[Rfam]
The record is a 63-nucleotide RNA from Starkeya sp. ORNL1, which matches "terC RNA" in Rfam.
Rfam classes the family as a cis-regulatory element.
The source organism's lineage runs through Bacteria, Pseudomonadota, Alphaproteobacteria, Hyphomicrobiales and Starkeya.
RNA sequence: CCCCUGAUCCGGGCCCCUCUGACGCGAGCCAUGCCGGCGAUCGCGUGAUGUCGGAUCUUUCCC
Numbered sequence: 001c002c003c004c005u006g007a008u009c010c011g012g013g014c015c016c017c018u019c020u021g022a023c024g025c026g027a028g029c030c031a032u033g034c035c036g037g038c039g040a041u042c043g044c045g046u047g048a049u050g051u052c053g054g055a056u057c058u059u060u061c062c063c
Base pairs, nucleotide, nucleotide: 006057007056008055009054010053011052012051022046023045024044025043026042027041029039